Shown here is a 104-nucleotide RNA from Brachybacterium phenoliresistens, a member of the family "TPP riboswitch aptamer (THI element)".
Lineage of the source: Bacteria > Actinomycetota > Actinomycetes > Micrococcales > Brachybacterium.
It scores 57 bits against the family's covariance model.
[Rfam]
RNA sequence: GAGGCCGACACGGGGUGCCCGCCGCGUCCGGAGCGCGGGCUGAGAUGAGACCCGUCGCACCUGAUCGAGCUCGCACUCGCGGAGGGAUGUCACCCAUGAGCCCU
Number, nucleotide and partner (000 for none) at each position: 001g000002a000003g000004g000005c000006c000007g091008a090009c089010a088011c054012g053013g052014g051015g000016u048017g040018c039019c038020c037021g036022c000023c000024g000025c000026g000027u000028c000029c000030g000031g000032a000033g000034c000035g000036c021037g020038g019039g018040c017041u000042g000043a000044g000045a000046u000047g000048a016049g000050a000051c014052c013053c012054g011055u000056c000057g000058c000059a000060c085061c084062u083063g000064a000065u000066c079067g078068a077069g076070c000071u000072c000073g000074c000075a000076c069077u068078c067079g066080c000081g000082g000083a062084g061085g060086g000087a000088u010089g009090u008091c007092a000093c000094c000095c000096a000097u000098g000099a000100g000101c000102c000103c000104u000